[Rfam]
RNA sequence: AUCCCAUUUCCAAGAAUUACUGUUUCCUAUAGCAGUGGUUUAAACAGAAGUGCAAACAAUUAAAGAAUCUCAUCCCGCUUAGGGGGCUGUGGCUGUGCCCCUUAAAACGAAUGUGGAGGUUCUUGCCCC
Numbered sequence: 001a002u003c004c005c006a007u008u009u010c011c012a013a014g015a016a017u018u019a020c021u022g023u024u025u026c027c028u029a030u031a032g033c034a035g036u037g038g039u040u041u042a043a044a045c046a047g048a049a050g051u052g053c054a055a056a057c058a059a060u061u062a063a064a065g066a067a068u069c070u071c072a073u074c075c076c077g078c079u080u081a082g083g084g085g086g087c088u089g090u091g092g093c094u095g096u097g098c099c100c101c102u103u104a105a106a107a108c109g110a111a112u113g114u115g116g117a118g119g120u121u122c123u124u125g126c127c128c129c
Base pairs, nucleotide, nucleotide: 002055005052006051007050008049009048015040016039017038018037019036020035021034022033023032024031065122066121067120068119069118070117071116079105080104081103082102083101084100085099086098087097

The record is a 129-nucleotide sequence from Tupaia belangeri, which matches "Small nucleolar RNA SNORA68" in Rfam. Pairs were carried over by alignment from the consensus structure, which was predicted with PFOLD. The match comes from Rfam's covariance-model search (86 bits). The source organism's lineage runs through Eukaryota, Deuterostomia, Boreoeutheria, Euarchontoglires and Tupaia belangeri. U68 is a member of the H/ACA class of small nucleolar RNAs (snoRNAs) which act as guides in the the modification of uridines to pseudouridines. It is annotated as an H/ACA-box small nucleolar RNA. Rfam links the family to the GO terms RNA processing and nucleolus. A reference for the family is Ganot et al. (1997), "The family of box ACA small nucleolar RNAs is defined by an evolutionarily conserved secondary structure and ubiquitous sequence elements essential for RNA accumulation", Genes Dev.